Background: Rfam assigns this 143-nucleotide sequence from Rattus norvegicus to the family "Small nucleolar RNA SNORA48".
[Rfam]
RNA sequence: CACCCCCAGCAAUGUGCAAAGAGACACCCUGGUGGUGGUGGUGCUCUUAUAUAAGAUGGGGCAGAACAGAUGGUAGUCCUUUGUUCAUCCUAGCUUGAUGCCUGGCUUGGUGGCCAAAGCUGUUCUAUGCCUAGGACUUAUAA
Numbered sequence: 001c002a003c004c005c006c007c008a009g010c011a012a013u014g015u016g017c018a019a020a021g022a023g024a025c026a027c028c029c030u031g032g033u034g035g036u037g038g039u040g041g042u043g044c045u046c047u048u049a050u051a052u053a054a055g056a057u058g059g060g061g062c063a064g065a066a067c068a069g070a071u072g073g074u075a076g077u078c079c080u081u082u083g084u085u086c087a088u089c090c091u092a093g094c095u096u097g098a099u100g101c102c103u104g105g106c107u108u109g110g111u112g113g114c115c116a117a118a119g120c121u122g123u124u125c126u127a128u129g130c131c132u133a134g135g136a137c138u139u140a141u142a143a
Base pairs, nucleotide, nucleotide: 001064004061005060006059007058008057013054019048020047021046023042025040026039027038028037083137084136085135086134097131099129103127104126105125108122109121111119
NCBI's taxonomy places the organism under Eukaryota, Chordata, Dipnotetrapodomorpha, Muridae, Rattus. Rfam classes the family as an H/ACA-box small nucleolar RNA. Rfam 15.1 lists 2,109 matches to the family in 150 species. The literature on the family includes a 1997 paper in J Mol Biol by Ofengand and Bakin, "Mapping to nucleotide resolution of pseudouridine residues in large subunit ribosomal RNAs from representative eukaryotes, prokaryotes, archaebacteria, mitochondria and chloroplasts". The snoRNA ACA 48 has been identified to guide pseudouridylation of the residue U3797 in the 28S rRNA subunit.